[Rfam]
RNA: Streptococcus sRNA 10
RNA sequence: AAAAAUUGUCUUGAGAAGCAACCGUGAUUAUGUCGUCAGUUCGAAACGUUUGUUUCCGGCAUAAACUGAAAUAGCGAGACUUGUUUUAAUAAAAACAGGUCUCUUUUU
Numbered sequence: 001a002a003a004a005a006u007u008g009u010c011u012u013g014a015g016a017a018g019c020a021a022c023c024g025u026g027a028u029u030a031u032g033u034c035g036u037c038a039g040u041u042c043g044a045a046a047c048g049u050u051u052g053u054u055u056c057c058g059g060c061a062u063a064a065a066c067u068g069a070a071a072u073a074g075c076g077a078g079a080c081u082u083g084u085u086u087u088a089a090u091a092a093a094a095a096c097a098g099g100u101c102u103c104u105u106u107u108u
Stems, first nucleotide, its partner, number of pairs: 026066001028064008038055002043050002076103012